[Rfam]
RNA: Small nucleolar RNA SNORA31
RNA sequence: AUGCAUCUAUUUGCCAGACCUGAAGCAGAUAUUGUCAGCUGCAAAGGUUUUUCCCAUUAUAGAUGCAAGAAAAAAGUGUCUUCCUGCAACCUGUCUGUCUGAUGUGGUAGCCAAGGUUGAAUAGGAGAACACUGGG
Numbered sequence: 001a002u003g004c005a006u007c008u009a010u011u012u013g014c015c016a017g018a019c020c021u022g023a024a025g026c027a028g029a030u031a032u033u034g035u036c037a038g039c040u041g042c043a044a045a046g047g048u049u050u051u052u053c054c055c056a057u058u059a060u061a062g063a064u065g066c067a068a069g070a071a072a073a074a075a076g077u078g079u080c081u082u083c084c085u086g087c088a089a090c091c092u093g094u095c096u097g098u099c100u101g102a103u104g105u106g107g108u109a110g111c112c113a114a115g116g117u118u119g120a121a122u123a124g125g126a127g128a129a130c131a132c133u134g135g136g
Stems, first nucleotide, its partner, number of pairs: 002067007012056002016050005024040003028036002079128005087119001090116003095110005